Rfam assigns this 183-nucleotide RNA sequence from Paenibacillus sp. HGF7 to the family "FMN riboswitch aptamer (RFN element)". Its family is annotated with FMN binding in the Gene Ontology.

RNA sequence: UCAAUCCUUCGGGGCGGGGUGAAAGUCCCUACCGGCGGUGUUGCCGCAGUACCGGUUAUCCGGUCUGCUGCUCAGUCCGUGACCCGGCUUGUCUGUUUUUUACGCGUUCGAACGCAGGACAUUCCGGCUGACUUGGUGAGAGUCCGAGACCGACAGUUAAAGUCUGGAUGGGAGAAGGAGAAC
Numbered sequence: 001u002c003a004a005u006c007c008u009u010c011g012g013g014g015c016g017g018g019g020u021g022a023a024a025g026u027c028c029c030u031a032c033c034g035g036c037g038g039u040g041u042u043g044c045c046g047c048a049g050u051a052c053c054g055g056u057u058a059u060c061c062g063g064u065c066u067g068c069u070g071c072u073c074a075g076u077c078c079g080u081g082a083c084c085c086g087g088c089u090u091g092u093c094u095g096u097u098u099u100u101u102a103c104g105c106g107u108u109c110g111a112a113c114g115c116a117g118g119a120c121a122u123u124c125c126g127g128c129u130g131a132c133u134u135g136g137u138g139a140g141a142g143u144c145c146g147a148g149a150c151c152g153a154c155a156g157u158u159a160a161a162g163u164c165u166g167g168a169u170g171g172g173a174g175a176a177g178g179a180g181a182a183c
Base pairs, nucleotide, nucleotide: 005179006178007177008176009175010174017029018028019027031163032162033152034151035080036079037078038077084127085126086125087124132148133147134146135145136144154166155165156164
Dot-bracket structure: ....((((((......(((.......))).[[((((((......................................))))...((((....................................))))....(((((.......)))))..)).(((.....]]))).......))))))....